[Rfam]
RNA sequence: CCUCUCUCAGCUCCGCUGAAUCACACUGGUGCAGUGUGUGCUUGGCGUAUUUUAAGGGAGAGAGAAGAAGGCCCUCCUAAUGCACGGCAGACCUGCCCCUAAGUGGCCUCUCUGUUCCUAGGAGUGCAACAGCU
Numbered sequence: 001c002c003u004c005u006c007u008c009a010g011c012u013c014c015g016c017u018g019a020a021u022c023a024c025a026c027u028g029g030u031g032c033a034g035u036g037u038g039u040g041c042u043u044g045g046c047g048u049a050u051u052u053u054a055a056g057g058g059a060g061a062g063a064g065a066a067g068a069a070g071g072c073c074c075u076c077c078u079a080a081u082g083c084a085c086g087g088c089a090g091a092c093c094u095g096c097c098c099c100u101a102a103g104u105g106g107c108c109u110c111u112c113u114g115u116u117c118c119u120a121g122g123a124g125u126g127c128a129a130c131a132g133c134u
Stems, first nucleotide, its partner, number of pairs: 003065006011058003019043002022040005074124005080119001082117001089113003095107003
RNA: Small nucleolar RNA SNORA64/SNORA10 family